[Rfam]
RNA sequence: CAAGCACCCGAACCCCAGACCCGCCGUGCACCGUGGCCACGGCUCCAAGCGGGUGCAAACAGCAGCGGGGGCCUCGUCGCCUCUGAGGGGCUGUGGGUGCCCCCGGGAAUGAAUGUGGAGGCCGCACAUGC
Numbered sequence: 001c002a003a004g005c006a007c008c009c010g011a012a013c014c015c016c017a018g019a020c021c022c023g024c025c026g027u028g029c030a031c032c033g034u035g036g037c038c039a040c041g042g043c044u045c046c047a048a049g050c051g052g053g054u055g056c057a058a059a060c061a062g063c064a065g066c067g068g069g070g071g072c073c074u075c076g077u078c079g080c081c082u083c084u085g086a087g088g089g090g091c092u093g094u095g096g097g098u099g100c101c102c103c104c105g106g107g108a109a110u111g112a113a114u115g116u117g118g119a120g121g122c123c124g125c126a127c128a129u130g131c
Stems, first nucleotide, its partner, number of pairs: 004056006019044001021042003026037002070123006082108003087103005

Rfam assigns this 131-nucleotide RNA sequence from Oryctolagus cuniculus to the family "Small nucleolar RNA SNORA68". On this family, see Ganot et al., Genes Dev 1997: "The family of box ACA small nucleolar RNAs is defined by an evolutionarily conserved secondary structure and ubiquitous sequence elements essential for RNA accumulation". About the family: U68 is a member of the H/ACA class of small nucleolar RNAs (snoRNAs) which act as guides in the the modification of uridines to pseudouridines. The family's consensus secondary structure was predicted with PFOLD.